[Rfam]
RNA sequence: ACGCAUUCUGAAGACCUGCCGUCUAGGCCACGCACUGAGAACAUAGUUUCUCACGCGCUAUUCAGCGCCGCCUAGGGGAAAGUCCCCGGACCCCAGGCAGAAAGUGCCGCGCGCUCGUCCCACGGGCCCCCCACACCCCGCCCGUUCCCUCGCGCACAUAUCGCCAAGAAGCCCCCAGAGCCGAGCGAGCGAGCACGGGCGGGGAACUUGUCAGUGUGCAACAGAUACGCAGGUAGCGCGCUAGCCGCGCGAACAGCACGGGGCUCAUUCUCGGAGUGCA
Numbered sequence: 001a002c003g004c005a006u007u008c009u010g011a012a013g014a015c016c017u018g019c020c021g022u023c024u025a026g027g028c029c030a031c032g033c034a035c036u037g038a039g040a041a042c043a044u045a046g047u048u049u050c051u052c053a054c055g056c057g058c059u060a061u062u063c064a065g066c067g068c069c070g071c072c073u074a075g076g077g078g079a080a081a082g083u084c085c086c087c088g089g090a091c092c093c094c095a096g097g098c099a100g101a102a103a104g105u106g107c108c109g110c111g112c113g114c115u116c117g118u119c120c121c122a123c124g125g126g127c128c129c130c131c132c133a134c135a136c137c138c139c140g141c142c143c144g145u146u147c148c149c150u151c152g153c154g155c156a157c158a159u160a161u162c163g164c165c166a167a168g169a170a171g172c173c174c175c176c177a178g179a180g181c182c183g184a185g186c187g188a189g190c191g192a193g194c195a196c197g198g199g200c201g202g203g204g205a206a207c208u209u210g211u212c213a214g215u216g217u218g219c220a221a222c223a224g225a226u227a228c229g230c231a232g233g234u235a236g237c238g239c240g241c242u243a244g245c246c247g248c249g250c251g252a253a254c255a256g257c258a259c260g261g262g263g264c265u266c267a268u269u270c271u272c273g274g275a276g277u278g279c280a
Stems, first nucleotide, its partner, number of pairs: 003279009014234006022076007037052005081265002084263004096108004109131001111129001113127006134204001136202001140200006149193004161188004171181002174178001236250005